[Rfam]
Rfam assigns this 119-nucleotide RNA from Oryza sativa to the family "U5 spliceosomal RNA". Gene Ontology terms of the family: U5 snRNP and spliceosomal tri-snRNP complex assembly. The family's consensus secondary structure is taken from published work. By type it is a spliceosomal small nuclear RNA. For this family Rfam cites "Domain analysis of human U5 RNA. Cap trimethylation, protein binding, and spliceosome assembly" (Hinz et al., J Biol Chem, 1996). A search with the family's covariance model found it, with a score of 90 bits. From the family's description: U5 RNA is a component of both types of known spliceosome. The precise function of this molecule is unknown, though it is known that the 5' loop is required for splice site selection and p220 binding, and that both the 3' stem-loop and the Sm site are important for Sm protein binding and cap methylation.
RNA sequence: AGCUGCGCGGUGAGCACAAAGCGAACUAUUCUUUCGCCUUUUACUAAAGAAUACCGUGUGCGCGCCGCAAUUAGCAGCAUACGCUAAUUUUUGGAGGGAACCGACUCUUCUGAGGAGGU
Number, nucleotide and partner (000 for none) at each position: 001a000002g000003c077004u076005g075006c074007g000008c067009g066010g065011u064012g063013a000014g061015c060016a059017c058018a057019a000020a000021g000022c000023g000024a000025a000026c000027u053028a052029u051030u050031c049032u048033u047034u046035c000036g000037c000038c000039u000040u000041u000042u000043a000044c000045u000046a034047a033048a032049g031050a030051a029052u028053a027054c000055c000056g000057u018058g017059u016060g015061c014062g000063c012064g011065c010066c009067g008068c000069a000070a000071u000072u000073a000074g006075c005076a004077g003078c000079a000080u000081a000082c000083g000084c000085u000086a000087a000088u000089u000090u000091u000092u000093g000094g000095a000096g000097g000098g000099a000100a000101c000102c000103g119104a000105c117106u116107c115108u000109u000110c000111u000112g000113a000114g000115g107116a106117g105118g000119u103